[Rfam]
RNA sequence: UUGACUUUUGCCUAGUUAAACUUUUUAAAGUUUGACCAAGUUUAUAGAAAAACAUAUUUGCAUUUCCAACACAAAAUAAACAUAUAUUCAAUCUUAGAUUUAAUGAAACUAAUUUAGUGUUAUAGAUGUUGCUAAAUUUUUCUAUAAACUUGGUCAAACAUUAAAAAGUUUGACUAGGAAAAAAAUCAA
Numbered sequence: 001u002u003g004a005c006u007u008u009u010g011c012c013u014a015g016u017u018a019a020a021c022u023u024u025u026u027a028a029a030g031u032u033u034g035a036c037c038a039a040g041u042u043u044a045u046a047g048a049a050a051a052a053c054a055u056a057u058u059u060g061c062a063u064u065u066c067c068a069a070c071a072c073a074a075a076a077u078a079a080a081c082a083u084a085u086a087u088u089c090a091a092u093c094u095u096a097g098a099u100u101u102a103a104u105g106a107a108a109c110u111a112a113u114u115u116a117g118u119g120u121u122a123u124a125g126a127u128g129u130u131g132c133u134a135a136a137u138u139u140u141u142c143u144a145u146a147a148a149c150u151u152g153g154u155c156a157a158a159c160a161u162u163a164a165a166a167a168g169u170u171u172g173a174c175u176a177g178g179a180a181a182a183a184a185a186u187c188a189a
Stems, first nucleotide, its partner, number of pairs: 006183004011178016031158005045144008055134002060129006068121001072117001074115004
Dot-bracket structure: .....((((.((((((((((((((((....(((((.........((((((((..((...((((((..(...(.((((..................................)))).)...)..))))))...))..)))))))).........)))))....)))))))))))))))).))))......
Rfam assigns this 189-nucleotide RNA from Oryza sativa to the family "MIR1435 microRNA precursor family".
The base pairs follow the family's consensus structure, which was predicted with RNAalifold.
The family has 3 seed sequences and 1,765 matches in Rfam 15.1.